[Rfam]
RNA: Selenocysteine transfer RNA
RNA sequence: GGAAGGUCGUCGUUUCCGGUGAAGCGGCAGGACUUCAAAUCCUGUUAAGGACGCCAGCGUUCUUGGGUGGGUUCGACUCCCAUUACCUUCC
Numbered sequence: 001g002g003a004a005g006g007u008c009g010u011c012g013u014u015u016c017c018g019g020u021g022a023a024g025c026g027g028c029a030g031g032a033c034u035u036c037a038a039a040u041c042c043u044g045u046u047a048a049g050g051a052c053g054c055c056a057g058c059g060u061u062c063u064u065g066g067g068u069g070g071g072u073u074c075g076a077c078u079c080c081c082a083u084u085a086c087c088u089u090c091c
Stems, first nucleotide, its partner, number of pairs: 001091007009083001011026006027045006047064005068082004